[Rfam]
RNA sequence: UAGCGCGUCAUCUGGGGAGUAGCCAGCCACGGCUUUGGCCGUGGGUCGCGCAUCAACAUAUUUGGUGGAGACACCAUGGUGCGCGGGGCAGGAUCGAUGGUCCUGUCU
Number, nucleotide and partner (000 for none) at each position: 001u000002a000003g000004c000005g000006c000007g000008u000009c000010a000011u000012c000013u000014g000015g000016g000017g000018a000019g000020u000021a000022g000023c000024c000025a000026g000027c044028c043029a042030c000031g000032g000033c000034u000035u000036u000037g000038g000039c000040c000041g000042u029043g028044g027045g000046u086047c085048g084049c083050g082051c081052a080053u079054c078055a077056a000057c000058a000059u000060a000061u000062u000063u076064g075065g074066u073067g072068g000069a000070g000071a000072c067073a066074c065075c064076a063077u055078g054079g053080u052081g051082c050083g049084c048085g047086g046087g000088g000089c000090a000091g000092g000093a000094u000095c000096g000097a000098u000099g000100g000101u000102c000103c000104u000105g000106u000107c000108u000

The record is a 108-nucleotide RNA from Sphingobium algorifonticola, which matches "Manganese Mn2+ riboswitch aptamer (yybP-ykoY)" in Rfam. The organism belongs to Sphingobium, within Bacteria. The pairing is the family consensus, mapped onto this sequence.